[Rfam]
RNA sequence: AAAAGUGAAUACAGGAACAUUUAUAUAAGCCCAUAAUUGGUUGGGCGUCUCUACUAACUACCGUAAAUAGUUACCUAUAAAUCAUUUGUCGGAUUGA
Numbered sequence: 001a002a003a004a005g006u007g008a009a010u011a012c013a014g015g016a017a018c019a020u021u022u023a024u025a026u027a028a029g030c031c032c033a034u035a036a037u038u039g040g041u042u043g044g045g046c047g048u049c050u051c052u053a054c055u056a057a058c059u060a061c062c063g064u065a066a067a068u069a070g071u072u073a074c075c076u077a078u079a080a081a082u083c084a085u086u087u088g089u090c091g092g093a094u095u096g097a
Stems, first nucleotide, its partner, number of pairs: 019082007029046005055073006
Purine riboswitch aptamer: a 97-nucleotide RNA sequence from Coprococcus sp. AF21-14LB. NCBI's taxonomy places the organism under Bacteria, Clostridia, Lachnospirales, Lachnospiraceae, Coprococcus. The match comes from Rfam's covariance-model search (58 bits).